[Rfam]
RNA: mir-5928 microRNA precursor family
Organism: Haemonchus placei
RNA sequence: GACCCAAAUUUGAAGUAGAAUAGACUGGCAGGAUGAGCUGACCAUACUAGUCUACUCUACUUCAAGUUUGUGCCC
Numbered sequence: 001g002a003c004c005c006a007a008a009u010u011u012g013a014a015g016u017a018g019a020a021u022a023g024a025c026u027g028g029c030a031g032g033a034u035g036a037g038c039u040g041a042c043c044a045u046a047c048u049a050g051u052c053u054a055c056u057c058u059a060c061u062u063c064a065a066g067u068u069u070g071u072g073c074c075c
Base pairs, nucleotide, nucleotide: 001074003072005070006069007068008067009066011064012063013062014061015060016059017058018057019056021054022053023052025050026049027048028047030045032043034041